Rfam assigns this 351-nucleotide RNA from Rhodobacteraceae bacterium EhC02 to the family "Alphaproteobacteria transfer-messenger RNA". Gene Ontology term of the family: RNA catabolic process. The family's consensus secondary structure is taken from published work. Bacterial tmRNA, also known as 10Sa RNA or SsrA, is named for its dual tRNA and mRNA-like properties. Its role is to liberate the mRNA from a stalled ribosome.

RNA sequence: CCCCUUCAAAAGCGCCGUGCCCUGCCCUAUAUUCAACCUGUCUGGCAACAGACUAUGGACAUAAACGCGCUCGUAAUAAGCGGAUCGGACCCGGGGGCGGUACCCGGCAGCUCCACCAAAACCCGUUCAUUUGACGGCAAUGGGGCUGAAACAGGAUCGACGAACGUCUAAAGGGGUAUGCUUUGUCUCGGUGAGGUACCACCGUUAUCGGUCCGAAAAGUACAAUUGCAAAUGACAAUCGUGCUCCGGUGGCAAUGGCCGCGUAAGCGGUCGGAGAAACCGAAAACUAAGCCCUUGGGCCUAGCAGCUUAAGGCGGGGUUCGCAGGCACCUGGCAACAGAAGCCUGCACU
Numbered sequence: 001c002c003c004c005u006u007c008a009a010a011a012g013c014g015c016c017g018u019g020c021c022c023u024g025c026c027c028u029a030u031a032u033u034c035a036a037c038c039u040g041u042c043u044g045g046c047a048a049c050a051g052a053c054u055a056u057g058g059a060c061a062u063a064a065a066c067g068c069g070c071u072c073g074u075a076a077u078a079a080g081c082g083g084a085u086c087g088g089a090c091c092c093g094g095g096g097g098c099g100g101u102a103c104c105c106g107g108c109a110g111c112u113c114c115a116c117c118a119a120a121a122c123c124c125g126u127u128c129a130u131u132u133g134a135c136g137g138c139a140a141u142g143g144g145g146c147u148g149a150a151a152c153a154g155g156a157u158c159g160a161c162g163a164a165c166g167u168c169u170a171a172a173g174g175g176g177u178a179u180g181c182u183u184u185g186u187c188u189c190g191g192u193g194a195g196g197u198a199c200c201a202c203c204g205u206u207a208u209c210g211g212u213c214c215g216a217a218a219a220g221u222a223c224a225a226u227u228g229c230a231a232a233u234g235a236c237a238a239u240c241g242u243g244c245u246c247c248g249g250u251g252g253c254a255a256u257g258g259c260c261g262c263g264u265a266a267g268c269g270g271u272c273g274g275a276g277a278a279a280c281c282g283a284a285a286a287c288u289a290a291g292c293c294c295u296u297g298g299g300c301c302u303a304g305c306a307g308c309u310u311a312a313g314g315c316g317g318g319g320u321u322c323g324c325a326g327g328c329a330c331c332u333g334g335c336a337a338c339a340g341a342a343g344c345c346u347g348c349a350c351u
Stems, first nucleotide, its partner, number of pairs: 040053005057188005067181002069177004081166002085163003091107005108148007189204004195214002198212003317332004323348006

NCBI's taxonomy places the organism under Bacteria, Pseudomonadati, Alphaproteobacteria, Rhodobacterales, Paracoccaceae.